[Rfam]
RNA sequence: UGCGACACUAAUCAAAUGAGUAGUUCCCCAUCCAAGGGCUACCUUACCAUAUUCCGAAUUC
Numbered sequence: 001u002g003c004g005a006c007a008c009u010a011a012u013c014a015a016a017u018g019a020g021u022a023g024u025u026c027c028c029c030a031u032c033c034a035a036g037g038g039c040u041a042c043c044u045u046a047c048c049a050u051a052u053u054c055c056g057a058a059u060u061c
Base pairs, nucleotide, nucleotide: 018044020042021041022040023039024038025037026036
A member of the RNA family "Plastid-psbN 5UTR RNA" from Gossypium trilobum, 61 nucleotides long. By type it is a cis-regulatory element. The literature on the family includes a 2023 paper in Plant Commun by Richter et al., "Retrograde signaling in plants: A critical review focusing on the GUN pathway and beyond". Rfam describes the family as follows. Plastid psbN is a non-coding RNA (ncRNA) recognised in plastids. It was reported as a conserved 11 stem-loop in the prime untranslated region (5UTR) of psbN genes. It has been reported that the motif is retained in a subset of mature transcripts in barley, which can suggests a possible role in transcript alternative 5 prime processing. Taxonomically the source falls in Gossypium (Eukaryota, Tracheophyta, Euphyllophyta, Spermatophyta).